[Rfam]
RNA: mir-148/mir-152 microRNA precursor family
Organism: Kryptolebias marmoratus
RNA sequence: UCCAAAUAAAGUUCUGUGAUACACUCAGACUCGACUCGCAUGCAGUCAGUGCAUUACAGAACUUUGUUUUGGG
Numbered sequence: 001u002c003c004a005a006a007u008a009a010a011g012u013u014c015u016g017u018g019a020u021a022c023a024c025u026c027a028g029a030c031u032c033g034a035c036u037c038g039c040a041u042g043c044a045g046u047c048a049g050u051g052c053a054u055u056a057c058a059g060a061a062c063u064u065u066g067u068u069u070u071g072g073g
Stems, first nucleotide, its partner, number of pairs: 004069013022051004028047004
Dot-bracket structure: ...(((((((((((((.....((((..((((............)))))))).....)))))))))))))....